[Rfam]
RNA sequence: AUUACCGGACUCGCAAAACCCAACCAUUUGUUCGGAAGGUGAGCCUGUCUGGGUCGGGGCGCUCUGUAAACCGCCCAUCCUCAUCCCGCGAAAUCGCUUCGCGUGGAGUGCUAUCGGCAUAGGCUGAGGGAACAACAAAAGCCACGGGCCACCGCGCCCGUGGUCGUUUACCUGGUCCGCCUCGAUCGAAUCA
Numbered sequence: 001a002u003u004a005c006c007g008g009a010c011u012c013g014c015a016a017a018a019c020c021c022a023a024c025c026a027u028u029u030g031u032u033c034g035g036a037a038g039g040u041g042a043g044c045c046u047g048u049c050u051g052g053g054u055c056g057g058g059g060c061g062c063u064c065u066g067u068a069a070a071c072c073g074c075c076c077a078u079c080c081u082c083a084u085c086c087c088g089c090g091a092a093a094u095c096g097c098u099u100c101g102c103g104u105g106g107a108g109u110g111c112u113a114u115c116g117g118c119a120u121a122g123g124c125u126g127a128g129g130g131a132a133c134a135a136c137a138a139a140a141g142c143c144a145c146g147g148g149c150c151a152c153c154g155c156g157c158c159c160g161u162g163g164u165c166g167u168u169u170a171c172c173u174g175g176u177c178c179g180c181c182u183c184g185a186u187c188g189a190a191u192c193a
Stems, first nucleotide, its partner, number of pairs: 005052006013044002020039002024035002053079001057076005065070001088192001094189003098185002101183001103180004112170002114127005141164009

Sense overlapping transcript RNA 2652 (sot): a 193-nucleotide RNA from Halalkalicoccus paucihalophilus. Taxonomically the source falls in Halalkalicoccus (Archaea, Methanobacteriati, Halobacteria, Halalkalicoccaceae). Rfam describes the family as follows. It is associated with IS1341-type transposase (tnpB) genes, at the 3'-end in H. salinarum NRC-1. The tetraloop structural motif may be functional. The family's consensus secondary structure was predicted with RNAfold.